The family of this 89-nucleotide RNA sequence from Streptomyces sp. YIM 130001 is "sodF sRNA". It scores 96 bits against the family's covariance model. Rfam 15.1 lists 336 matches to the family in 317 species. The organism belongs to Streptomyces, within Bacteria. Rfam links the family to the GO terms negative regulation of translation, regulation of mRNA stability and mRNA binding.
[Rfam]
RNA sequence: ACGCCCUGCUCGUGAUCGUCUUCUCAACCUUCACCGGGCAGGCGGUAGGAGGAAGGCCCCCGCAAGGACAUGACUUGCGGGGGCCUUCU
Numbered sequence: 001a002c003g004c005c006c007u008g009c010u011c012g013u014g015a016u017c018g019u020c021u022u023c024u025c026a027a028c029c030u031u032c033a034c035c036g037g038g039c040a041g042g043c044g045g046u047a048g049g050a051g052g053a054a055g056g057c058c059c060c061c062g063c064a065a066g067g068a069c070a071u072g073a074c075u076u077g078c079g080g081g082g083g084c085c086u087u088c089u
Stems, first nucleotide, its partner, number of pairs: 002044002005042007012034004018028002051089016